This 102-nucleotide RNA from Terracoccus luteus belongs to the Rfam family "SAM (S-adenosyl methionine) riboswitch aptamer". About the family: SAM-IV is a mRNA element that regulates gene expression via direct sensing of S-adenosylmethionine (SAM or AdoMet). SAM-IV riboswitches share conserved nucleotide positions with the previously described SAM-I riboswitches sequence analysis and molecular recognition experiments suggest that SAM-I and SAM-IV riboswitches share similar ligand binding sites, but have different scaffolds. Taxonomically the source falls in Terracoccus (Bacteria, Bacillati, Micrococcales, Intrasporangiaceae). The family's consensus secondary structure is taken from published work. The match comes from Rfam's covariance-model search (93 bits).

RNA sequence: GGUCAUGAGCGCCAGCGACAAGCCCCGGCUCGCUGGCCGGCAACCCUCCAACCGCGGUGGGGUGCCCCGGGUGAGGACCUGGCCCCACGGCAUCCGCCGACA
Numbered sequence: 001g002g003u004c005a006u007g008a009g010c011g012c013c014a015g016c017g018a019c020a021a022g023c024c025c026c027g028g029c030u031c032g033c034u035g036g037c038c039g040g041c042a043a044c045c046c047u048c049c050a051a052c053c054g055c056g057g058u059g060g061g062g063u064g065c066c067c068c069g070g071g072u073g074a075g076g077a078c079c080u081g082g083c084c085c086c087a088c089g090g091c092a093u094c095c096g097c098c099g100a101c102a
Base pairs, nucleotide, nucleotide: 001079002078003077004076009038011037012036013035014034015033016032021030022029039066040065041064044062045061046060048057049056088099089098090097091096